[Rfam]
RNA: Bacterial RNase P class B
Organism: Bombilactobacillus mellifer
RNA sequence: GGUUUUGAGUAAUCGCGGUUUGUUAAAGCAAGCUGAGGAAAGUCCACGCCGGCAUAAGCUGCAAUGCUUAUAGUGUUCGCGUUCAGCCCAAUAAGCUGGAGCACUUGGAAUUCCAAGUGACGGCAGUUAACGUACUAAGGUGUAAUAACUAGGUACUAGUAGCUUGAAAGUGCCACAGAAACGCAGUCUUUUGGAAACAAAAGAAUGGAACGGGUAAACCCCACGAGCAGGAAACCCAAACUUUGGUCGGGGAGCUUCAAUACAAGGAAAUAAACUUACGUUGAAGGCAUUCAAUAGAAUGCAGAUAGAUGAUUACUGAAGGUUAGUAGCAGAGCGCUCGCCUAACUGGAACAGAACGUGGCUUAUAAAA
Numbered sequence: 001g002g003u004u005u006u007g008a009g010u011a012a013u014c015g016c017g018g019u020u021u022g023u024u025a026a027a028g029c030a031a032g033c034u035g036a037g038g039a040a041a042g043u044c045c046a047c048g049c050c051g052g053c054a055u056a057a058g059c060u061g062c063a064a065u066g067c068u069u070a071u072a073g074u075g076u077u078c079g080c081g082u083u084c085a086g087c088c089c090a091a092u093a094a095g096c097u098g099g100a101g102c103a104c105u106u107g108g109a110a111u112u113c114c115a116a117g118u119g120a121c122g123g124c125a126g127u128u129a130a131c132g133u134a135c136u137a138a139g140g141u142g143u144a145a146u147a148a149c150u151a152g153g154u155a156c157u158a159g160u161a162g163c164u165u166g167a168a169a170g171u172g173c174c175a176c177a178g179a180a181a182c183g184c185a186g187u188c189u190u191u192u193g194g195a196a197a198c199a200a201a202a203g204a205a206u207g208g209a210a211c212g213g214g215u216a217a218a219c220c221c222c223a224c225g226a227g228c229a230g231g232a233a234a235c236c237c238a239a240a241c242u243u244u245g246g247u248c249g250g251g252g253a254g255c256u257u258c259a260a261u262a263c264a265a266g267g268a269a270a271u272a273a274a275c276u277u278a279c280g281u282u283g284a285a286g287g288c289a290u291u292c293a294a295u296a297g298a299a300u301g302c303a304g305a306u307a308g309a310u311g312a313u314u315a316c317u318g319a320a321g322g323u324u325a326g327u328a329g330c331a332g333a334g335c336g337c338u339c340g341c342c343u344a345a346c347u348g349g350a351a352c353a354g355a356a357c358g359u360g361g362c363u364u365a366u367a368a369a370a
Stems, first nucleotide, its partner, number of pairs: 004370003007366001008317007016035006040364003044361005049231002052228002054071006077226003081222001082100006101121001102119006122221002125164003132156004139150003170219002172215003187204007235251003255286007287302006321347006